This 364-nucleotide RNA from Azospira restricta belongs to the Rfam family "Bacterial RNase P class A". Rfam links the family to the GO terms dimeric ribonuclease P complex, tRNA processing and ribonuclease P activity. The match comes from Rfam's covariance-model search (298 bits).
RNA sequence: GAAGCUGGCCAGGCAACCGCCGGGCGCGCAAGCGCCGGGAGGAAAGUCCGGGCUCCGCAGAGCAGGAUGCCGGCUAACGACCGGGCGCUAUAAGGCGCAAGCCCCAAGGCGACGGAAAGUGCAACAGAGAAUAGACCGCCGAUGGCCGCAAGGCACAGGCAAGGGUGAAACGGCGAGGUAAGAGCUCACCGCGGACGUGGUAACACGGACGGCACGGCAAACCCCAUCUGGAGCAAGGCCAAAUAGGGAAGCGUACGGCGUGGCUCGCGCUGCUUCCGGGUAGGCUGCUUGAGCGGCGCGGCAACGCGUCGCCUAGAGGAAUGGUUGCCCACGACAGAACCCGGCUUAUCGGCCAGCUUCACUC
Number, nucleotide and partner (000 for none) at each position: 001g360002a359003a358004g357005c356006u355007g354008g353009c352010c351011a349012g329013g328014c327015a326016a325017c324018c323019g000020c039021c038022g000023g036024g035025c034026g033027c032028g000029c000030a000031a000032g027033c026034g025035c024036c023037g000038g021039g020040a000041g000042g000043a000044a347045a346046g345047u000048c344049c343050g342051g341052g340053c233054u232055c231056c230057g000058c000059a000060g266061a265062g264063c263064a000065g229066g228067a227068u226069g225070c084071c083072g082073g081074c000075u000076a000077a000078c000079g000080a000081c073082c072083g071084g070085g113086c111087g110088c109089u108090a000091u000092a000093a000094g000095g000096c000097g000098c000099a000100a000101g000102c000103c000104c000105c000106a000107a000108g089109g088110c087111g086112a000113c085114g224115g223116a000117a000118a000119g222120u221121g218122c217123a000124a000125c000126a000127g000128a000129g000130a000131a000132u000133a000134g000135a000136c164137c163138g160139c159140c158141g000142a000143u155144g154145g000146c152147c000148g000149c000150a000151a000152g146153g000154c144155a143156c000157a000158g140159g139160c138161a000162a000163g137164g136165g000166u000167g000168a000169a000170a000171c000172g190173g189174c000175g187176a186177g185178g000179u000180a000181a000182g000183a000184g000185c177186u176187c175188a000189c173190c172191g213192c211193g210194g000195a000196c207197g206198u205199g204200g000201u000202a000203a000204c199205a198206c197207g196208g000209a000210c193211g192212g000213c191214a000215c000216g000217g122218c121219a000220a000221a120222c119223c115224c114225c069226a068227u067228c066229u065230g056231g055232a054233g053234c000235a000236a000237g286238g285239c284240c283241a000242a000243a000244u000245a000246g000247g277248g276249a275250a274251g273252c272253g000254u000255a000256c000257g271258g270259c269260g268261u267262g000263g063264c062265u061266c060267g261268c260269g259270c258271u257272g252273c251274u250275u249276c248277c247278g000279g000280g000281u000282a000283g240284g239285c238286u237287g000288c000289u000290u000291g000292a000293g312294c311295g310296g309297c308298g307299c306300g305301g000302c000303a000304a000305c300306g299307c298308g297309u296310c295311g294312c293313c000314u000315a000316g000317a000318g000319g000320a000321a000322u000323g018324g017325u016326u015327g014328c013329c012330c000331a000332c000333g000334a000335c000336a000337g000338a000339a000340c052341c051342c050343g049344g048345c046346u045347u044348a000349u011350c000351g010352g009353c008354c007355a006356g005357c004358u003359u002360c001361a000362c000363u000364c000